[Rfam]
RNA sequence: CUGUUAUUCCAUUAGCAGUAGUCUACUGUCAACAAAGCGGCUGGUAACGGCUGUGAGGAAGCGUGACAGGACAAGGGUAGCCCCACCCGAAAGGGUUCAAGCUGAAACUGCGAGGUGAAAGCGAUAAGCUGCAAGCAACAAUGCGGUUGGGGAG
Numbered sequence: 001c002u003g004u005u006a007u008u009c010c011a012u013u014a015g016c017a018g019u020a021g022u023c024u025a026c027u028g029u030c031a032a033c034a035a036a037g038c039g040g041c042u043g044g045u046a047a048c049g050g051c052u053g054u055g056a057g058g059a060a061g062c063g064u065g066a067c068a069g070g071a072c073a074a075g076g077g078u079a080g081c082c083c084c085a086c087c088c089g090a091a092a093g094g095g096u097u098c099a100a101g102c103u104g105a106a107a108c109u110g111c112g113a114g115g116u117g118a119a120a121g122c123g124a125u126a127a128g129c130u131g132c133a134a135g136c137a138a139c140a141a142u143g144c145g146g147u148u149g150g151g152g153a154g
Stems, first nucleotide, its partner, number of pairs: 001018006027068005033057001037054007085096004097124002101122001108115002128147006
The record is a 154-nucleotide sequence, which matches "Group II catalytic intron D1-D4-7" in Rfam. Its family is annotated with Group II intron splicing in the Gene Ontology. Rfam describes the family as follows. Group II introns are found in rRNA, tRNA and mRNA of organelles in fungi, plants and protists, and also in mRNA in bacteria.